[Rfam]
RNA sequence: ACCGCCACGGACGGCGGUGGUUACAUUCUUGCGAUGUUUUGCCGAAAGGCAAAACUCGAAACUCAAAAUCGGACAAGGACGUCCGAUUUUGAGUACCU
Number, nucleotide and partner (000 for none) at each position: 001a018002c017003c016004g015005c014006c013007a000008c000009g000010g000011a000012c000013g006014g005015c004016g003017g002018u001019g000020g000021u000022u000023a000024c000025a000026u000027u000028c000029u000030u000031g000032c058033g057034a056035u000036g055037u054038u053039u052040u051041g050042c049043c048044g000045a000046a000047a000048g043049g042050c041051a040052a039053a038054a037055c036056u034057c033058g032059a000060a000061a094062c093063u092064c091065a090066a089067a088068a087069u086070c085071g084072g083073a082074c081075a000076a000077g000078g000079a000080c000081g074082u073083c072084c071085g070086a069087u068088u067089u066090u065091g064092a063093g062094u061095a000096c000097c000098u000
The family of this 98-nucleotide RNA from Treponema denticola is "TD-2 RNA". Rfam's curators put it in the seed alignment. A reference for the family is Weinberg et al. (2007), "Identification of 22 candidate structured RNAs in bacteria using the CMfinder comparative genomics pipeline", Nucleic Acids Res. The base pairs follow the family's consensus structure, which is taken from published work.